[Rfam]
RNA sequence: UAUAUUGCUUUGAAAUAUUAUUGGUUUUUUAUGCUGAUUUAAUCCAAAGGGAGUAUCACUGCAUUCGUAGAAUGGAUUAUUGCCCGGUAUCAAUAAGGGCGUAAAAAAAGCGCCCGCAGGCGCUUUUAAAAGAG
Number, nucleotide and partner (000 for none) at each position: 001u000002a000003u000004a000005u000006u000007g000008c000009u000010u000011u000012g000013a000014a000015a000016u000017a000018u000019u000020a000021u000022u000023g000024g000025u000026u000027u000028u000029u000030u000031a000032u000033g000034c000035u000036g000037a000038u000039u000040u000041a000042a000043u000044c000045c000046a000047a000048a000049g000050g000051g000052a000053g000054u000055a000056u000057c000058a000059c000060u069061g068062c000063a000064u000065u000066c000067g000068u061069a060070g000071a000072a000073u000074g000075g000076a000077u000078u000079a000080u000081u000082g000083c000084c000085c000086g000087g000088u000089a000090u000091c000092a000093a000094u000095a000096a000097g000098g000099g000100c000101g000102u000103a000104a000105a000106a000107a126108a000109a124110g123111c122112g121113c120114c119115c000116g000117c000118a000119g114120g113121c112122g111123c110124u109125u000126u107127u000128a000129a000130a000131a000132g000133a000134g000
The record is a 134-nucleotide RNA sequence from Klebsiella variicola, which matches "Enterobacteria sRNA STnc130" in Rfam. The family's consensus secondary structure was predicted with WAR. The family's RNA type in Rfam is small RNA. It is one of the family's seed sequences.